[Rfam]
RNA sequence: CUGCAGCUUAUUAAGCCGACCAGUCCCGCUGACGUGCGGUUCUGGUGUGCAAUGGCUGCAGACAGUAACUCUGUGGUUGUGUAUGAGGCCAGCUGGGAGGUGCUGGCCCCUUUAAGGGACCGCUGAGACAAUG
Numbered sequence: 001c002u003g004c005a006g007c008u009u010a011u012u013a014a015g016c017c018g019a020c021c022a023g024u025c026c027c028g029c030u031g032a033c034g035u036g037c038g039g040u041u042c043u044g045g046u047g048u049g050c051a052a053u054g055g056c057u058g059c060a061g062a063c064a065g066u067a068a069c070u071c072u073g074u075g076g077u078u079g080u081g082u083a084u085g086a087g088g089c090c091a092g093c094u095g096g097g098a099g100g101u102g103c104u105g106g107c108c109c110c111u112u113u114a115a116g117g118g119a120c121c122g123c124u125g126a127g128a129c130a131a132u133g
Stems, first nucleotide, its partner, number of pairs: 002051004019046004026039003075121003087108005

The record is a 133-nucleotide RNA sequence from Oncorhynchus kisutch, which matches "Small nucleolar RNA SNORA70" in Rfam. NCBI's taxonomy places the organism under Eukaryota, Opisthokonta, Teleostomi, Salmoninae, Oncorhynchus. On this family, see Charette and Gray, IUBMB Life 2000: "Pseudouridine in RNA: what, where, how, and why". Rfam links the family to the GO terms RNA processing and nucleolus. Pairs were carried over by alignment from the consensus structure, which was predicted with PFOLD.